[Rfam]
The record is a 147-nucleotide RNA from Anabaena sp. 90, which matches "RT-14 RNA" in Rfam.
The family's RNA type in Rfam is small RNA.
RNA sequence: CACUCUCUACAGUCAGAGUUGAUAGGAGGGAUUCUAUCAAGCGUACACCAGAGAGUCCAAACUCAAACCCAGUGAUGUGGGUGACUAUAUCCAAAUAUAAAACCGAGCCAGUUAGCUUGGUAGGGAAACCGAAGACUUGACUGGCUC
Numbered sequence: 001c002a003c004u005c006u007c008u009a010c011a012g013u014c015a016g017a018g019u020u021g022a023u024a025g026g027a028g029g030g031a032u033u034c035u036a037u038c039a040a041g042c043g044u045a046c047a048c049c050a051g052a053g054a055g056u057c058c059a060a061a062c063u064c065a066a067a068c069c070c071a072g073u074g075a076u077g078u079g080g081g082u083g084a085c086u087a088u089a090u091c092c093a094a095a096u097a098u099a100a101a102a103c104c105g106a107g108c109c110a111g112u113u114a115g116c117u118u119g120g121u122a123g124g125g126a127a128a129c130c131g132a133a134g135a136c137u138u139g140a141c142u143g144g145c146u147c
Stems, first nucleotide, its partner, number of pairs: 003055006012046002019040009074091007105147011117135001123130002